A member of the RNA family "Early nodulin 40" from Cicer arietinum, 327 nucleotides long.
NCBI's taxonomy places the organism under Eukaryota, Spermatophyta, Fabaceae, Cicereae, Cicer.
RNA sequence: AUGAAGCUUUUUUGGUGGCAAAAAUCAAUCCAUGGUUCUUAAAACAAGCCUGGAGAGAAGUGUGAGAAAGGGUAUAUAUAUUAAAUUACUAAUUUAACCCUUUUCAUACUUUCCCUCCUCUUCUACAACAGUUUGCUUUUGUGCUUUAGCUAUUGGCUUCUCAUAUCACAGAGGGAUUAUGUUUUCAUCAAACGUGCUUUUUCUGAGUAGCAGAAGCAAUUAAAUAAAUUAAGCAUUUUUCUCUAAUGGAUCAGAAGCUUUUUGGUUAUGGUAUGGCAAACCGGCAAGUCACAAAAAGGCAAUGGAUUCCAAUUUUUUUGGGGUCUU
Numbered sequence: 001a002u003g004a005a006g007c008u009u010u011u012u013u014g015g016u017g018g019c020a021a022a023a024a025u026c027a028a029u030c031c032a033u034g035g036u037u038c039u040u041a042a043a044a045c046a047a048g049c050c051u052g053g054a055g056a057g058a059a060g061u062g063u064g065a066g067a068a069a070g071g072g073u074a075u076a077u078a079u080a081u082u083a084a085a086u087u088a089c090u091a092a093u094u095u096a097a098c099c100c101u102u103u104u105c106a107u108a109c110u111u112u113c114c115c116u117c118c119u120c121u122u123c124u125a126c127a128a129c130a131g132u133u134u135g136c137u138u139u140u141g142u143g144c145u146u147u148a149g150c151u152a153u154u155g156g157c158u159u160c161u162c163a164u165a166u167c168a169c170a171g172a173g174g175g176a177u178u179a180u181g182u183u184u185u186c187a188u189c190a191a192a193c194g195u196g197c198u199u200u201u202u203c204u205g206a207g208u209a210g211c212a213g214a215a216g217c218a219a220u221u222a223a224a225u226a227a228a229u230u231a232a233g234c235a236u237u238u239u240u241c242u243c244u245a246a247u248g249g250a251u252c253a254g255a256a257g258c259u260u261u262u263u264g265g266u267u268a269u270g271g272u273a274u275g276g277c278a279a280a281c282c283g284g285c286a287a288g289u290c291a292c293a294a295a296a297a298g299g300c301a302a303u304g305g306a307u308u309c310c311a312a313u314u315u316u317u318u319u320g321g322g323g324u325c326u327u
Stems, first nucleotide, its partner, number of pairs: 062117001131281006151271001305325007

Its family is annotated with nodulation in the Gene Ontology. The family's RNA type in Rfam is non-coding RNA gene.